[Rfam]
RNA sequence: GGACACAGCGAAGACUUGCUUUCGGAGCUACAUGACUGGACGUCGCGAAUUGUUGUGGCAUGCUAAACGUUUAGUAUGAAUCAGCAGUUCCUUCGUUCCAACAACAUUACGUUGGCUCUGGGAAAAGUCCCCGGACAUAAGGCAGAGAGUGCCAGUCGUGAAGACUCCAGUCUCCGCGGAUUUUCAAUCUGGCGAAGAAGCAGUGGCCGAGCCACGAGGACCCGAGGAGAUGUUUCGUCGCAUCAAAGUCAUGCAAGUGGAUUCCUCUAGAGUUCCCUGGACUCUGUGGGAUUUCUACACGAUGGGGCUUACUCUCGCUGUGUC
Numbered sequence: 001g002g003a004c005a006c007a008g009c010g011a012a013g014a015c016u017u018g019c020u021u022u023c024g025g026a027g028c029u030a031c032a033u034g035a036c037u038g039g040a041c042g043u044c045g046c047g048a049a050u051u052g053u054u055g056u057g058g059c060a061u062g063c064u065a066a067a068c069g070u071u072u073a074g075u076a077u078g079a080a081u082c083a084g085c086a087g088u089u090c091c092u093u094c095g096u097u098c099c100a101a102c103a104a105c106a107u108u109a110c111g112u113u114g115g116c117u118c119u120g121g122g123a124a125a126a127g128u129c130c131c132c133g134g135a136c137a138u139a140a141g142g143c144a145g146a147g148a149g150u151g152c153c154a155g156u157c158g159u160g161a162a163g164a165c166u167c168c169a170g171u172c173u174c175c176g177c178g179g180a181u182u183u184u185c186a187a188u189c190u191g192g193c194g195a196a197g198a199a200g201c202a203g204u205g206g207c208c209g210a211g212c213c214a215c216g217a218g219g220a221c222c223c224g225a226g227g228a229g230a231u232g233u234u235u236c237g238u239c240g241c242a243u244c245a246a247a248g249u250c251a252u253g254c255a256a257g258u259g260g261a262u263u264c265c266u267c268u269a270g271a272g273u274u275c276c277c278u279g280g281a282c283u284c285u286g287u288g289g290g291a292u293u294u295c296u297a298c299a300c301g302a303u304g305g306g307g308c309u310u311a312c313u314c315u316c317g318c319u320g321u322g323u324c
Base pairs, nucleotide, nucleotide: 002324003323004322005321006320007319008318009317010316011315014258015257016256017255018254019253022121023120024119025118026117027116028115037100038099039098040097125310126309127308129307130306131305132304141153142152143151144150154166158165159164168232169231174227175226177224178223179222182220183219184218190214191213192212193211200207201206260294261293263291264290265289
Overview: The record is a 324-nucleotide sequence from Nematostella vectensis, which matches "RNase MRP" in Rfam. A search with the family's covariance model found it, with a score of 131 bits. The family's RNA type in Rfam is ribozyme. About the family: RNase MRP is an enzymatically active ribonucleoprotein with two distinct roles in eukaryotes.